[Rfam]
RNA sequence: ACUGACGUGGUUCACUAAUACCAUCCCACGAAAAAAAACUAGGAGGAA
Number, nucleotide and partner (000 for none) at each position: 001a000002c000003u000004g000005a000006c030007g029008u028009g027010g026011u000012u000013c000014a000015c000016u000017a000018a000019u000020a000021c000022c000023a000024u000025c000026c010027c009028a008029c007030g006031a000032a000033a000034a000035a000036a000037a000038a000039c000040u000041a000042g000043g000044a000045g000046g000047a000048a000
RNA: PreQ1 (pre queuosine) riboswitch aptamer
Organism: Carnobacterium maltaromaticum